A member of the RNA family "Small nucleolar RNA Z157/R69/R10" from Cajanus cajan, 97 nucleotides long. The source organism's lineage runs through Eukaryota, Embryophyta, Euphyllophyta, Phaseoleae and Cajanus. Rfam classes the family as a C/D-box small nucleolar RNA. A reference for the family is Chen et al. (2003), "The high diversity of snoRNAs in plants: identification and comparative study of 120 snoRNA genes from Oryza sativa", Nucleic Acids Res. Its family is annotated with nucleolus and RNA processing in the Gene Ontology.
[Rfam]
RNA sequence: UUUUGUGCUGUGACGAGACAAUUUUGUGGACUAGAGAUUCUGAUAUGGGGGUUUACUCAGAAGUUGAUUAUUAACCCUUGGCUGUCUAAGCACACCC
Numbered sequence: 001u002u003u004u005g006u007g008c009u010g011u012g013a014c015g016a017g018a019c020a021a022u023u024u025u026g027u028g029g030a031c032u033a034g035a036g037a038u039u040c041u042g043a044u045a046u047g048g049g050g051g052u053u054u055a056c057u058c059a060g061a062a063g064u065u066g067a068u069u070a071u072u073a074a075c076c077c078u079u080g081g082c083u084g085u086c087u088a089a090g091c092a093c094a095c096c097c
Stems, first nucleotide, its partner, number of pairs: 004094005037069001039067002044062001046059004